The family of this 168-nucleotide RNA sequence from Triticum aestivum is "MIR2118 microRNA precursor family".
RNA sequence: AUCAGGAAGAGGAAGAAAUGAGCAUCUAAGAGCAUUGGGCAUGGGCACAUGGAGGAAUGGCUAAACUAGUGUGUCCCUGUCCAACUAGGGUCCAAUAUUUGUUUUGGAAUUUGCCCGAUGCCUCACAUGCCUAUUGUUCUUAGGUGUUCCUUCCUCUCCCUUAGGUGC
Numbered sequence: 001a002u003c004a005g006g007a008a009g010a011g012g013a014a015g016a017a018a019u020g021a022g023c024a025u026c027u028a029a030g031a032g033c034a035u036u037g038g039g040c041a042u043g044g045g046c047a048c049a050u051g052g053a054g055g056a057a058u059g060g061c062u063a064a065a066c067u068a069g070u071g072u073g074u075c076c077c078u079g080u081c082c083a084a085c086u087a088g089g090g091u092c093c094a095a096u097a098u099u100u101g102u103u104u105u106g107g108a109a110u111u112u113g114c115c116c117g118a119u120g121c122c123u124c125a126c127a128u129g130c131c132u133a134u135u136g137u138u139c140u141u142a143g144g145u146g147u148u149c150c151u152u153c154c155u156c157u158c159c160c161u162u163a164g165g166u167g168c
Stems, first nucleotide, its partner, number of pairs: 009159001011157003015153003020149003025144010036133008045124001048120003052116001054115002057112001059110001
On this family, see Xue et al., Nucleic Acids Res 2009: "Characterization and expression profiles of miRNAs in rice seeds". Rfam links the family to the GO terms RISC complex and miRNA-mediated post-transcriptional gene silencing. A search with the family's covariance model found it, with a score of 107 bits.